Description: Lysine riboswitch aptamer: a 178-nucleotide RNA sequence from Firmicutes bacterium CAG:102. Taxonomically the source falls in Bacillota (Bacteria, Bacillati). Rfam 15.1 lists 3,224 matches to the family in 1,923 species. Pairs were carried over by alignment from the consensus structure, which is taken from published work.
RNA sequence: UUCUAAAGUAGAGGUGCGUUUUUCAAGAGUAUCCGGGCAAAUGUCAUAAGGGAUAGAGGAAGCCCGCAGAAAGGGGAAAACGCCGAAGAAGGGAUAAGCCUUAUCUUUCCCCUUCUGGUUGUGCAGCUAAUAUCUGUACGACUGUCAUUGGAAAACCCAAUGGAGCGCUACAAAGAAC
Numbered sequence: 001u002u003c004u005a006a007a008g009u010a011g012a013g014g015u016g017c018g019u020u021u022u023u024c025a026a027g028a029g030u031a032u033c034c035g036g037g038c039a040a041a042u043g044u045c046a047u048a049a050g051g052g053a054u055a056g057a058g059g060a061a062g063c064c065c066g067c068a069g070a071a072a073g074g075g076g077a078a079a080a081c082g083c084c085g086a087a088g089a090a091g092g093g094a095u096a097a098g099c100c101u102u103a104u105c106u107u108u109c110c111c112c113u114u115c116u117g118g119u120u121g122u123g124c125a126g127c128u129a130a131u132a133u134c135u136g137u138a139c140g141a142c143u144g145u146c147a148u149u150g151g152a153a154a155a156c157c158c159a160a161u162g163g164a165g166c167g168c169u170a171c172a173a174a175g176a177a178c
Stems, first nucleotide, its partner, number of pairs: 008171004016083009032068001034066005087116007096107003117143010145163007